Background:
Shown here is an 86-nucleotide RNA sequence from Solanum lycopersicum, a member of the family "MIR8024 microRNA precursor family".
[Rfam]
RNA sequence: UUAGAGGAUUUGAAUACUUCAACUUGAAUACUUAGAGCAUUUGAAUACUUCAACUUGUAUACUUAGAGGAUUUGGAUACGUAAAAU
Numbered sequence: 001u002u003a004g005a006g007g008a009u010u011u012g013a014a015u016a017c018u019u020c021a022a023c024u025u026g027a028a029u030a031c032u033u034a035g036a037g038c039a040u041u042u043g044a045a046u047a048c049u050u051c052a053a054c055u056u057g058u059a060u061a062c063u064u065a066g067a068g069g070a071u072u073u074g075g076a077u078a079c080g081u082a083a084a085a086u
Stems, first nucleotide, its partner, number of pairs: 001084002004081001006079001009076006017068003021064001025059002028056001032053002035050003
Gene Ontology terms of the family: miRNA-mediated post-transcriptional gene silencing and RISC complex.